[Rfam]
RNA sequence: UGUGGGAUUGGGUCAAGCGCGACGAGCUCGACCGCCGUUUCAAGUCCUGAAGGCCUUCAUUGAUCAGCAUCGCGCCCCCUUCGGGGGCGAGCCGAUCUGCAAGGUCUUGCGGAUUGCGCCG
Numbered sequence: 001u002g003u004g005g006g007a008u009u010g011g012g013u014c015a016a017g018c019g020c021g022a023c024g025a026g027c028u029c030g031a032c033c034g035c036c037g038u039u040u041c042a043a044g045u046c047c048u049g050a051a052g053g054c055c056u057u058c059a060u061u062g063a064u065c066a067g068c069a070u071c072g073c074g075c076c077c078c079c080u081u082c083g084g085g086g087g088c089g090a091g092c093c094g095a096u097c098u099g100c101a102a103g104g105u106c107u108u109g110c111g112g113a114u115u116g117c118g119c120c121g
Base pairs, nucleotide, nucleotide: 017035018034019033024032082121083120084119086117093116094115096113097112098111099110100109101108102107
ALIL pseudoknot: a 121-nucleotide RNA sequence from Burkholderia pseudomallei. Rfam 15.1 lists 2,146 matches to the family in 1,098 species. Pairs were carried over by alignment from the consensus structure, which is taken from published work. Rfam classes the family as a cis-regulatory element. The literature on the family includes a 2008 paper in J Biol Chem by Mazauric et al., "Apical loop-internal loop RNA pseudoknots: a new type of stimulator of -1 translational frameshifting in bacteria".